A member of the RNA family "mir-393 microRNA precursor family" from Camphora micrantha, 147 nucleotides long. The pairing is the family consensus, mapped onto this sequence.

RNA sequence: GGUGGAGAGUUCCCAAGGGAUAGCAUGAUCCAAAGCUACAACCCCACAUUCAAAAGCAGCAGAAACAAGCACUUUUCACUUUUCUUCUACUUCAUUUUCUUUUUCUUUAGUCGAUGGGAUCAAUGCGAUCCCUUUGGAGUUCUCCAC
Numbered sequence: 001g002g003u004g005g006a007g008a009g010u011u012c013c014c015a016a017g018g019g020a021u022a023g024c025a026u027g028a029u030c031c032a033a034a035g036c037u038a039c040a041a042c043c044c045c046a047c048a049u050u051c052a053a054a055a056g057c058a059g060c061a062g063a064a065a066c067a068a069g070c071a072c073u074u075u076u077c078a079c080u081u082u083u084c085u086u087c088u089a090c091u092u093c094a095u096u097u098u099c100u101u102u103u104u105c106u107u108u109a110g111u112c113g114a115u116g117g118g119a120u121c122a123a124u125g126c127g128a129u130c131c132c133u134u135u136g137g138a139g140u141u142c143u144c145c146a147c
Stems, first nucleotide, its partner, number of pairs: 002147005008141006015134007023126003026122006035112001
A search with the family's covariance model found it, with a score of 66 bits. Its family is annotated with RISC complex and miRNA-mediated post-transcriptional gene silencing in the Gene Ontology. On this family, see Kruszka et al., J Plant Physiol 2012: "Role of microRNAs and other sRNAs of plants in their changing environments".